[Rfam]
RNA: Small nucleolar RNA F1/F2/snoR5a
RNA sequence: AAAUGCCAUUUGUUAUCUGACGCCUGGUUUUUUAGGAUUCCGUGUCUCAAAACAUGGCAGCAAAUGAGGGGGGACGAAACUUUGCAGCACUGGCUGCUCAUAAUGUGCCUCUAGUGACUAUAUGCCCUUUUGUAUUA
Numbered sequence: 001a002a003a004u005g006c007c008a009u010u011u012g013u014u015a016u017c018u019g020a021c022g023c024c025u026g027g028u029u030u031u032u033u034a035g036g037a038u039u040c041c042g043u044g045u046c047u048c049a050a051a052a053c054a055u056g057g058c059a060g061c062a063a064a065u066g067a068g069g070g071g072g073g074a075c076g077a078a079a080c081u082u083u084g085c086a087g088c089a090c091u092g093g094c095u096g097c098u099c100a101u102a103a104u105g106u107g108c109c110u111c112u113a114g115u116g117a118c119u120a121u122a123u124g125c126c127c128u129u130u131u132g133u134a135u136u137a
Base pairs, nucleotide, nucleotide: 004059005058006057007056008055009054019046020045021044022043023042026039027038028037029036073130074129076127089115090114091113092112093111096108097107